[Rfam]
RNA sequence: GAAGCUGGCUAGACAGUCGCUGCGCGCGUAAGCGCGGAGAGGAAAGUCCGGGCUCCAUAGAGCAGGAUGCCGGUUAACGACCGGAGGCCGUGAGGCCAUGGAAAGUGCCACAGAAAAUACACCGCCGAUGGCCGUUCCGCAAGGGGUGGAUCAGGUAAGGUUGAAAUGGCGAGGUAAGAGCUCACCGCGCACCUGGCAACAGGAGUGGCAGGGUAAACCCCAUCCGGAGCAAGACCAAAUAGGCAGGCGUUGAGGCGGCUCGUCGAGCCUGCGGGUAGGUUGCUUGAGUUCACGGGUAACCGUGCGCCUAGAGGAAUGACUGUCCACGACAGAACCCGGCUUAUCGGCCAGCUUCACCC
Numbered sequence: 001g002a003a004g005c006u007g008g009c010u011a012g013a014c015a016g017u018c019g020c021u022g023c024g025c026g027c028g029u030a031a032g033c034g035c036g037g038a039g040a041g042g043a044a045a046g047u048c049c050g051g052g053c054u055c056c057a058u059a060g061a062g063c064a065g066g067a068u069g070c071c072g073g074u075u076a077a078c079g080a081c082c083g084g085a086g087g088c089c090g091u092g093a094g095g096c097c098a099u100g101g102a103a104a105g106u107g108c109c110a111c112a113g114a115a116a117a118u119a120c121a122c123c124g125c126c127g128a129u130g131g132c133c134g135u136u137c138c139g140c141a142a143g144g145g146g147u148g149g150a151u152c153a154g155g156u157a158a159g160g161u162u163g164a165a166a167u168g169g170c171g172a173g174g175u176a177a178g179a180g181c182u183c184a185c186c187g188c189g190c191a192c193c194u195g196g197c198a199a200c201a202g203g204a205g206u207g208g209c210a211g212g213g214u215a216a217a218c219c220c221c222a223u224c225c226g227g228a229g230c231a232a233g234a235c236c237a238a239a240u241a242g243g244c245a246g247g248c249g250u251u252g253a254g255g256c257g258g259c260u261c262g263u264c265g266a267g268c269c270u271g272c273g274g275g276u277a278g279g280u281u282g283c284u285u286g287a288g289u290u291c292a293c294g295g296g297u298a299a300c301c302g303u304g305c306g307c308c309u310a311g312a313g314g315a316a317u318g319a320c321u322g323u324c325c326a327c328g329a330c331a332g333a334a335c336c337c338g339g340c341u342u343a344u345c346g347g348c349c350a351g352c353u354u355c356a357c358c359c
Base pairs, nucleotide, nucleotide: 001355002354003353004352005351006350007349008348009347010346011344012324013323014322015321016320017319018318020039021038023036024035025034026033027032044342045341046340048339049338050337051336052335053229054228055227056226060261061260062259063258065225066224067223068222069221070084071083072082073081074080085099086097087096088095089094100220101219105218106217107214108213109212122160123159124156125155126154129153130152131151132148168186169185171183172182173181187209188207189206190205192203193202194201195200233281234280235279236278243272244271245270246269247268248267254264255263256262288307289306291304292303293302294301295300
RNA: Bacterial RNase P class A
Organism: Sulfuricella denitrificans